[Rfam]
RNA sequence: CAAUGACCUGGUGAAAAUCCAGGUGGCUCUUCCGGCCGCCCAUCCGCCGGAUCACC
Numbered sequence: 001c002a003a004u005g006a007c008c009u010g011g012u013g014a015a016a017a018u019c020c021a022g023g024u025g026g027c028u029c030u031u032c033c034g035g036c037c038g039c040c041c042a043u044c045c046g047c048c049g050g051a052u053c054a055c056c
Base pairs, nucleotide, nucleotide: 006024007023008022009021010020011019012017031051032050033049034048035047036046